The family of this 134-nucleotide RNA sequence from Phyllostomus discolor is "Small nucleolar RNA SNORA22". It is annotated as an H/ACA-box small nucleolar RNA. Gene Ontology terms of the family: nucleolus and RNA processing. Rfam describes the family as follows. ACA22 is a member of the H/ACA class of snoRNA that guide the sites of modification of uridines to pseudouridines.
RNA sequence: UUGCACAGUGAACACCCACGUGUGCUGUAGAGUUCCCUUGGCUCCGGCUCUGUGCUAGAGCAAUGUCUGUUCUCCUCCUCUGCGGUGACAGGGCUAUCUCUCUUUUUAAAUGUACUCAGAAAGUCAGCACAUUA
Numbered sequence: 001u002u003g004c005a006c007a008g009u010g011a012a013c014a015c016c017c018a019c020g021u022g023u024g025c026u027g028u029a030g031a032g033u034u035c036c037c038u039u040g041g042c043u044c045c046g047g048c049u050c051u052g053u054g055c056u057a058g059a060g061c062a063a064u065g066u067c068u069g070u071u072c073u074c075c076u077c078c079u080c081u082g083c084g085g086u087g088a089c090a091g092g093g094c095u096a097u098c099u100c101u102c103u104u105u106u107u108a109a110a111u112g113u114a115c116u117c118a119g120a121a122a123g124u125c126a127g128c129a130c131a132u133u134a
Stems, first nucleotide, its partner, number of pairs: 003055006010049001013046001016041003020037001022035001024033003057073006079120004083112002086109001087107002090104004